[Rfam]
RNA sequence: AAGCGACCAAUCCAAAGCGCCGGAAGACGGGGUGAGAGCCGGCCGCGUGGGACUAGCGCAGGACGCUGUCAGACGUCCCCUAGAGGCGCUCCGGGCCUGCCCAUUUGU
Number, nucleotide and partner (000 for none) at each position: 001a000002a000003g089004c088005g087006a000007c085008c000009a000010a000011u000012c000013c000014a000015a000016a000017g000018c000019g000020c042021c041022g040023g039024a000025a000026g000027a000028c034029g000030g000031g000032g000033u000034g028035a000036g000037a000038g000039c023040c022041g021042g020043c000044c000045g076046c075047g074048u073049g000050g000051g000052a000053c000054u000055a000056g064057c000058g000059c000060a000061g000062g000063a000064c056065g000066c000067u000068g000069u000070c000071a000072g000073a048074c047075g046076u045077c000078c000079c000080c000081u000082a000083g000084a000085g007086g000087c005088g004089c003090u000091c000092c000093g102094g101095g100096c000097c000098u000099g000100c095101c094102c093103a000104u000105u000106u000107g000108u000